RNA sequence: GCUUCGGACUCGAAACUGCCGGAUAUGCAGGCGGGUUGGGAGCAAAUGUGCUCGAACGUCAUGGCCGGACUUUCCGGGCUGAACAUGGUUUACGAGGCGG
Numbered sequence: 001g002c003u004u005c006g007g008a009c010u011c012g013a014a015a016c017u018g019c020c021g022g023a024u025a026u027g028c029a030g031g032c033g034g035g036u037u038g039g040g041a042g043c044a045a046a047u048g049u050g051c052u053c054g055a056a057c058g059u060c061a062u063g064g065c066c067g068g069a070c071u072u073u074c075c076g077g078g079c080u081g082a083a084c085a086u087g088g089u090u091u092a093c094g095a096g097g098c099g100g
Stems, first nucleotide, its partner, number of pairs: 003012001033062001035060001077098001079096002

The family of this 100-nucleotide RNA sequence from Boseongicola aestuarii is "Pyrrolysine insertion sequence mttB". It scores 41 bits against the family's covariance model. The literature on the family includes a 2013 paper in BMC Bioinformatics by Theil Have et al., "Effects of using coding potential, sequence conservation and mRNA structure conservation for predicting pyrroly-sine containing genes". The base pairs follow the family's consensus structure, which was predicted with CMfinder. Rfam classes the family as a cis-regulatory element.